[Rfam]
RNA sequence: GCGCUGAUUGUGUGAUGACCUGACUUUUUUCCCCAUCAGAUCGUCCAUGUUGAUUUGAUGCUUUCUAAGCCAGUUAUGUCUGACAUCAGUGC
Numbered sequence: 001g002c003g004c005u006g007a008u009u010g011u012g013u014g015a016u017g018a019c020c021u022g023a024c025u026u027u028u029u030u031c032c033c034c035a036u037c038a039g040a041u042c043g044u045c046c047a048u049g050u051u052g053a054u055u056u057g058a059u060g061c062u063u064u065c066u067a068a069g070c071c072a073g074u075u076a077u078g079u080c081u082g083a084c085a086u087c088a089g090u091g092c
Stems, first nucleotide, its partner, number of pairs: 001092008010084001
RNA: Small nucleolar SNORD12/SNORD106